[Rfam]
RNA sequence: GGUGCGAGUGUCUUCGCCUCUGAGAGAGAUACUAUGAGAUCUCAAGCCUCGGAGGCGUAGAUACUCACACC
Dot-bracket structure: ((((.((((((((.((((((((((.(((((........)))))....)))))))))).)))))))).))))
Numbered sequence: 001g002g003u004g005c006g007a008g009u010g011u012c013u014u015c016g017c018c019u020c021u022g023a024g025a026g027a028g029a030u031a032c033u034a035u036g037a038g039a040u041c042u043c044a045a046g047c048c049u050c051g052g053a054g055g056c057g058u059a060g061a062u063a064c065u066c067a068c069a070c071c
Stems, first nucleotide, its partner, number of pairs: 001071004006066008015057010026043005
MIR2109 microRNA precursor family: a 71-nucleotide RNA from Glycine max. Rfam's curators put it in the seed alignment.